[Rfam]
RNA sequence: AGCGCUCCAUGACGGGAGCGGCUGAAAGGCCCACGGGCACGGGGCCGCUUCCAGAAGCCGCGCA
Numbered sequence: 001a002g003c004g005c006u007c008c009a010u011g012a013c014g015g016g017a018g019c020g021g022c023u024g025a026a027a028g029g030c031c032c033a034c035g036g037g038c039a040c041g042g043g044g045c046c047g048c049u050u051c052c053a054g055a056a057g058c059c060g061c062g063c064a
Stems, first nucleotide, its partner, number of pairs: 014052010029038003
Rfam assigns this 64-nucleotide RNA from Callipepla squamata to the family "Selenocysteine insertion sequence 1". The family's consensus secondary structure is taken from published work. The incorporation of selenocysteine into a protein sequence is directed by an in-frame UGA codon (usually a stop codon) within the coding region of the mRNA. Selenoprotein mRNAs contain a conserved secondary structure in the 3' UTR that is required for the distinction of UGA stop from UGA selenocysteine.